RNA sequence: AGGUAAUGUCUACUGCACCUGUAUCACUGUAGGCACUCGGUCAUGCUGUGGGCCCUAAGGGGCCUUAGACGUUCAUCGUCAAGGGUGUGAUGUGAGGACGGGUUCAAUGCCCU
Numbered sequence: 001a002g003g004u005a006a007u008g009u010c011u012a013c014u015g016c017a018c019c020u021g022u023a024u025c026a027c028u029g030u031a032g033g034c035a036c037u038c039g040g041u042c043a044u045g046c047u048g049u050g051g052g053c054c055c056u057a058a059g060g061g062g063c064c065u066u067a068g069a070c071g072u073u074c075a076u077c078g079u080c081a082a083g084g085g086u087g088u089g090a091u092g093u094g095a096g097g098a099c100g101g102g103u104u105c106a107a108u109g110c111c112c113u
Stems, first nucleotide, its partner, number of pairs: 001020004007035007036096004040091008050065006068080004100112004
This 113-nucleotide RNA from Paenibacillus sp. YN15 belongs to the Rfam family "epsC RNA". It scores 100 bits against the family's covariance model. The family's RNA type in Rfam is cis-regulatory element. Rfam 15.1 lists 450 matches to the family in 334 species. NCBI's taxonomy places the organism under Bacteria, Bacillota, Bacilli, Caryophanales, Paenibacillus. The base pairs follow the family's consensus structure, which is taken from published work.